Notes: The family of this 115-nucleotide sequence from Papaver somniferum is "Small nucleolar RNA Z278".

[Rfam]
RNA sequence: GCCUAUGAUGAUGUUAUCCAAUUAGUAGAGAUGUAGUGAAACUGAGACCCUGUUUACAGGGAGAACCCCCUUGGGGAAACUAUAUUCGUGUGACAAUAAUGGAUCUAACUGAGGC
Numbered sequence: 001g002c003c004u005a006u007g008a009u010g011a012u013g014u015u016a017u018c019c020a021a022u023u024a025g026u027a028g029a030g031a032u033g034u035a036g037u038g039a040a041a042c043u044g045a046g047a048c049c050c051u052g053u054u055u056a057c058a059g060g061g062a063g064a065a066c067c068c069c070c071u072u073g074g075g076g077a078a079a080c081u082a083u084a085u086u087c088g089u090g091u092g093a094c095a096a097u098a099a100u101g102g103a104u105c106u107a108a109c110u111g112a113g114g115c
Stems, first nucleotide, its partner, number of pairs: 001115003048061005
About this RNA:
The family's consensus secondary structure was predicted with PFOLD. Rfam's curators write: snoZ278 is a C/D box small nucleolar RNA. Its methylation guide targets have not been reported. The family has 7 seed sequences and 1,130 matches in Rfam 15.1. The family's RNA type in Rfam is C/D-box small nucleolar RNA. On this family, see Chen et al., Nucleic Acids Res 2003: "The high diversity of snoRNAs in plants: identification and comparative study of 120 snoRNA genes from Oryza sativa". Rfam links the family to the GO terms nucleolus and RNA processing. The organism belongs to Papaver, within Eukaryota.